FMN riboswitch aptamer (RFN element): a 153-nucleotide RNA sequence from Aquabacterium soli. Rfam links the family to the GO term FMN binding. Taxonomically the source falls in Aquabacterium (Bacteria, Pseudomonadati, Burkholderiales, Sphaerotilaceae).

[Rfam]
RNA sequence: AAGCGUUCUCAGGGCGGGGUGAAAGUCCCCACCGGCGGUGAUGGGCCUCGUGCCCUCAGCCCGCGAGCGCCUGCCAGGCCACGCCUGGCAGGGUCAGCAGACCCGGUUUGAUUCCGGGGCCGACGGUCACAGUCCGGAUGAAAGAGAGCGCGG
Dot-bracket structure: ..((((((((......(((.......))).[[((((((....................[[))))..((............................))...(((((.......)))))]])).(((.....]]))).......))))))))..